RNA sequence: UGCGGACAGAUUGAGUUGAUUCGCUUGGAAUAAUUGAGCAGAGUCAAAUUACUGUCCGAAAAUGAUAGAGAAGUCACAUGUCGAAUGAAAAUGUCUAUGGUUUACUACUGUAGCUUCGAGUAGUGCUUCCCACAUUU
Numbered sequence: 001u002g003c004g005g006a007c008a009g010a011u012u013g014a015g016u017u018g019a020u021u022c023g024c025u026u027g028g029a030a031u032a033a034u035u036g037a038g039c040a041g042a043g044u045c046a047a048a049u050u051a052c053u054g055u056c057c058g059a060a061a062a063u064g065a066u067a068g069a070g071a072a073g074u075c076a077c078a079u080g081u082c083g084a085a086u087g088a089a090a091a092u093g094u095c096u097a098u099g100g101u102u103u104a105c106u107a108c109u110g111u112a113g114c115u116u117c118g119a120g121u122a123g124u125g126c127u128u129c130c131c132a133c134a135u136u137u
Stems, first nucleotide, its partner, number of pairs: 003058007016047007023039005070129002073127001075125003
Rfam assigns this 137-nucleotide sequence from Caenorhabditis angaria to the family "Caenorhabditis snoRNA ceN59". The match comes from Rfam's covariance-model search (78 bits). The family has 3 seed sequences and 14 matches in Rfam 15.1. The source organism's lineage runs through Eukaryota, Eumetazoa, Nematoda, Rhabditoidea and Caenorhabditis. Rfam links the family to the GO terms nucleolus and RNA processing.